[Rfam]
dfrA-dnaX RNA: a 76-nucleotide RNA sequence. Rfam classes the family as a small RNA.
RNA sequence: CUUAUACAUAAUAAGUAUAUUCAUAUUUCAUCAUAGUUACAUAAAGUUAGUUAUAAAAAAGGAACUAUGAUAUAAU
Number, nucleotide and partner (000 for none) at each position: 001c000002u000003u000004a000005u000006a000007c000008a000009u000010a000011a000012u000013a000014a000015g000016u000017a000018u000019a000020u000021u000022c000023a000024u000025a000026u000027u000028u000029c000030a071031u070032c069033a068034u067035a066036g065037u064038u000039a000040c000041a000042u000043a000044a000045a000046g000047u000048u000049a000050g000051u000052u000053a000054u000055a000056a000057a000058a000059a000060a000061g000062g000063a000064a037065c036066u035067a034068u033069g032070a031071u030072a000073u000074a000075a000076u000